Annotation: A member of the RNA family "ZMP/ZTP riboswitch aptamer (pfl RNA motif)" from Niallia taxi, 86 nucleotides long.

[Rfam]
RNA sequence: UCGUUUCGCAGUGACUGACGACAAUAAUGGAAUGAACCAUAUGGGAGCUGUGAAAAGGUGUAUAGCCGGUCGUCUGGGCAAAAGGU
Dot-bracket structure: ...(((((((((..(([[[[[.....((((......))))..))..))))))))).......(.(((..]]]]]..))).).....
Taxonomically the source falls in Niallia (Bacteria, Bacillati, Caryophanales, Bacillaceae).
The family's consensus secondary structure is taken from published work.